[Rfam]
Nucleotides: 061
Stems, first nucleotide, its partner, number of pairs: 001059004005054005011048005017042006
Number, partner (000 for none) and nucleotide at each position: 001059c002058a003057u004056c005054u006053u007052a008051c009050c010000g011048g012047g013046c014045a015044g016000c017042a018041u019040u020039a021038g022037a023000u024000u025000g026000c027000g028000a029000c030000u031000g032000a033000g034000a035000u036000u037022u038021c039020u040019a041018a042017u043000a044015c045014u046013g047012u048011c049000a050009g051008g052007u053006a054005a055000c056004g057003a058002u059001g060000u061000c

A member of the RNA family "mir-8/mir-141/mir-200 microRNA precursor family" from Locusta migratoria, 61 nucleotides long. The family is grouped with related families in Rfam's "mir-8 microRNA precursor clan". Pairs were carried over by alignment from the consensus structure, which was predicted with RNAalifold. The sequence is in the family's curated seed alignment.